[Rfam]
RNA sequence: UUGUUCUUAACUUUGGUAACCUAGCUUUAUGACGUCCGUGUUACUCAUACAGCUAGAUAACCAAAGAAAAAAUCAA
Numbered sequence: 001u002u003g004u005u006c007u008u009a010a011c012u013u014u015g016g017u018a019a020c021c022u023a024g025c026u027u028u029a030u031g032a033c034g035u036c037c038g039u040g041u042u043a044c045u046c047a048u049a050c051a052g053c054u055a056g057a058u059a060a061c062c063a064a065a066g067a068a069a070a071a072a073u074c075a076a
Stems, first nucleotide, its partner, number of pairs: 001076003005072001007070002011066007019058001021056006028049005
RNA: mir-9/mir-79 microRNA precursor family